[Rfam]
RNA sequence: GUCGUCUCCAAAGCUGCGUUUCUAUGCCACAAACAGAGAGAUUGCGCAAGCAGUCUCUCAUUCCUGGCAUAUGAGAAAUUCGGAGUAAUCUCUUCAAGUCACCACCCUUCAGCCUCCUGCUAUGCGGCGAGGAACGGGUCUGCCUGUGAGGGCCUUGCGUGACAUCACGUCUGCAAUUGGCAUCAGAAAAGCAGGCCCCGGGCCGCCCCCUCGUGUACCCUCUUCGAGGGGAGGAUGGCCAGCGGACUCGGUGUGCCUAUGGGAGAGCCGUUGCGAAGAUUGUGUAAGGACACUUGAGUGCAAUACGCAGCGUGGGUACCGCAGCCGGGGGUCCUCCAUAACCCUCGGUUCACCCAUAAUUCGAUUCCGAUUACUCUGGAGACGAC
Number, nucleotide and partner (000 for none) at each position: 001g386002u385003c384004g383005u000006c000007u000008c000009c379010a000011a377012a000013g000014c000015u310016g000017c000018g000019u000020u305021u000022c000023u071024a070025u069026g068027c000028c000029a000030c000031a000032a000033a000034c000035a000036g059037a058038g057039a056040g055041a054042u053043u052044g051045c050046g000047c000048a000049a000050g045051c044052a043053g042054u041055c040056u039057c038058u037059c036060a000061u000062u000063c000064c000065u000066g000067g000068c026069a025070u024071a023072u000073g000074a000075g000076a000077a000078a000079u000080u000081c369082g368083g367084a366085g365086u000087a000088a000089u000090c000091u000092c000093u279094u278095c000096a000097a000098g000099u000100c000101a000102c000103c000104a000105c000106c000107c000108u000109u000110c000111a000112g000113c000114c000115u000116c000117c000118u000119g000120c000121u000122a000123u000124g000125c000126g000127g000128c000129g000130a000131g000132g000133a000134a000135c000136g000137g000138g000139u000140c000141u000142g153143c152144c151145u150146g000147u000148g000149a000150g145151g144152g143153c142154c000155u000156u000157g170158c169159g168160u167161g000162a000163c000164a000165u000166c000167a160168c159169g158170u157171c000172u000173g274174c273175a272176a271177u000178u000179g269180g268181c267182a000183u000184c000185a000186g000187a000188a000189a000190a000191g000192c000193a258194g257195g256196c000197c000198c000199c000200g000201g000202g000203c000204c000205g000206c000207c000208c000209c000210c000211u000212c000213g000214u000215g000216u000217a000218c000219c000220c000221u000222c000223u000224u000225c000226g000227a000228g000229g000230g000231g000232a000233g000234g000235a000236u000237g000238g000239c000240c000241a000242g000243c000244g000245g000246a000247c000248u000249c000250g000251g000252u000253g000254u000255g000256c195257c194258u193259a000260u000261g000262g000263g000264a000265g000266a000267g181268c180269c179270g000271u176272u175273g174274c173275g000276a000277a000278g094279a093280u000281u000282g000283u000284g000285u000286a000287a000288g000289g000290a000291c000292a000293c000294u000295u000296g000297a000298g000299u000300g000301c000302a000303a000304u000305a020306c000307g000308c000309a000310g015311c000312g357313u356314g355315g354316g353317u352318a000319c000320c000321g000322c000323a000324g000325c000326c000327g000328g000329g000330g000331g000332u000333c000334c000335u000336c000337c000338a000339u000340a000341a000342c000343c000344c000345u000346c000347g000348g000349u000350u000351c000352a317353c316354c315355c314356a313357u312358a000359a000360u000361u000362c000363g000364a000365u085366u084367c083368c082369g081370a000371u000372u000373a000374c000375u000376c000377u011378g000379g009380a000381g000382a000383c004384g003385a002386c001
Record summary: Shown here is a 386-nucleotide RNA from Sodiomyces alkalinus, a member of the family "Nuclear RNase P". Rfam's curators write: Ribonuclease P (RNase P) is a ubiquitous endoribonuclease, found in archaea, bacteria and eukarya as well as chloroplasts and mitochondria. Its best characterised activity is the generation of mature 5'-ends of tRNAs by cleaving the 5'-leader elements of precursor-tRNAs. Cellular RNase Ps are ribonucleoproteins. RNA from bacterial RNase Ps retains its catalytic activity in the absence of the protein subunit, i.e. it is a ribozyme. Isolated eukaryotic and archaeal RNase P RNA has not been shown to retain its catalytic function, but is still essential for the catalytic activity of the holoenzyme. Although the archaeal and eukaryotic holoenzyme s have a much greater protein content than the bacterial ones, the RNA cores from all the three lineages are homologous -- helices corresponding to P1, P2, P3, P4, and P10/11 are common to all cellular RNase P RNAs. Yet, there is considerable sequence variation, particularly among the eukaryotic RNAs. Lineage of the source: Eukaryota > Opisthokonta > saccharomyceta > Plectosphaerellaceae > Sodiomyces alkalinus. It scores 64 bits against the family's covariance model. By type it is a ribozyme.